[Rfam]
RNA: SAM riboswitch aptamer (S box leader)
Organism: Tepidibacillus fermentans
RNA sequence: UUCUUAUCGAGAGAGGUGGAGGGACUGGCCCAAUGAAGCCCGGCAACCGGUUUUUAAAAACGCGGUGCCAAUUCCUGCGGAGAAUCAUCUCCGAGAGAUAAGAA
Numbered sequence: 001u002u003c004u005u006a007u008c009g010a011g012a013g014a015g016g017u018g019g020a021g022g023g024a025c026u027g028g029c030c031c032a033a034u035g036a037a038g039c040c041c042g043g044c045a046a047c048c049g050g051u052u053u054u055u056a057a058a059a060a061c062g063c064g065g066u067g068c069c070a071a072u073u074c075c076u077g078c079g080g081a082g083a084a085u086c087a088u089c090u091c092c093g094a095g096a097g098a099u100a101a102g103a104a
Stems, first nucleotide, its partner, number of pairs: 001104008013041001015040003021031003025077001027075002042069004047065002049061001051059002073096001078093006